RNA sequence: UACUUAUAAAGAAAGACUGAGGGAAAGGCCCUGUAACGUCUUAGCAACCUGUACUAGCCGGAAGUAAAAGGUGCUAAUUCCUACUCUGUAGAAAGAGAAAGAUAAGUU
Numbered sequence: 001u002a003c004u005u006a007u008a009a010a011g012a013a014a015g016a017c018u019g020a021g022g023g024a025a026a027g028g029c030c031c032u033g034u035a036a037c038g039u040c041u042u043a044g045c046a047a048c049c050u051g052u053a054c055u056a057g058c059c060g061g062a063a064g065u066a067a068a069a070g071g072u073g074c075u076a077a078u079u080c081c082u083a084c085u086c087u088g089u090a091g092a093a094a095g096a097g098a099a100a101g102a103u104a105a106g107u108u
Base pairs, nucleotide, nucleotide: 002107003106004105005104006103007102013042014041015040016039017038021031022030023029026082027081028080043075044074045073046072048071049070052066053065054064079100084097085096086095087094
RNA: SAM riboswitch aptamer (S box leader)
Organism: Pedobacter sp. BAL39